[Rfam]
RNA sequence: GAACACCCAUCGAUAACGCUCGGCAGGAGCGGGGGAACCAGGUAAGUCGCCGAAACGGAAUUUCCGGACGUCUUGGACAUGCAAGACGCUUCGGACAGGCCGUACGGCUUGGGGUAAAGCCGCGACCGUCAGGACGCGACCGGGCAGCUCCCGCCCGAACCCGACAGCUCACCUCGCAGGCGCCGGAGAGGAAAUUC
Numbered sequence: 001g002a003a004c005a006c007c008c009a010u011c012g013a014u015a016a017c018g019c020u021c022g023g024c025a026g027g028a029g030c031g032g033g034g035g036a037a038c039c040a041g042g043u044a045a046g047u048c049g050c051c052g053a054a055a056c057g058g059a060a061u062u063u064c065c066g067g068a069c070g071u072c073u074u075g076g077a078c079a080u081g082c083a084a085g086a087c088g089c090u091u092c093g094g095a096c097a098g099g100c101c102g103u104a105c106g107g108c109u110u111g112g113g114g115u116a117a118a119g120c121c122g123c124g125a126c127c128g129u130c131a132g133g134a135c136g137c138g139a140c141c142g143g144g145c146a147g148c149u150c151c152c153g154c155c156c157g158a159a160c161c162c163g164a165c166a167g168c169u170c171a172c173c174u175c176g177c178a179g180g181c182g183c184c185g186g187a188g189a190g191g192a193a194a195u196u197c
Base pairs, nucleotide, nucleotide: 006026029177030176031175032174033173034172039111040110041109042108043107112162113161114160121138122137123136142156143155144154145153
A member of the RNA family "c-di-AMP riboswitch aptamer (ydaO/yuaA leader)" from Actinobacteria bacterium OV320, 197 nucleotides long. The match comes from Rfam's covariance-model search (56 bits). The source organism's lineage runs through Bacteria, Bacillati, Actinomycetota and Actinomycetes.